[Rfam]
Shown here is a 78-nucleotide sequence from Haemonchus placei, a member of the family "SmY spliceosomal RNA".

RNA sequence: CGAAAUCUUGGUUUAUAUACAGGGCCUUCCGUAAGACCCAUGGUUUGAAUUUUUGGGUGCCCCUACCCGGUAGGGGCA
Numbered sequence: 001c002g003a004a005a006u007c008u009u010g011g012u013u014u015a016u017a018u019a020c021a022g023g024g025c026c027u028u029c030c031g032u033a034a035g036a037c038c039c040a041u042g043g044u045u046u047g048a049a050u051u052u053u054u055g056g057g058u059g060c061c062c063c064u065a066c067c068c069g070g071u072a073g074g075g076g077c078a
Stems, first nucleotide, its partner, number of pairs: 022039003026035003059077008

On this family, see MacMorris et al., RNA 2007: "A novel family of C. elegans snRNPs contains proteins associated with trans-splicing".
The base pairs follow the family's consensus structure, which is taken from published work.
It scores 47 bits against the family's covariance model.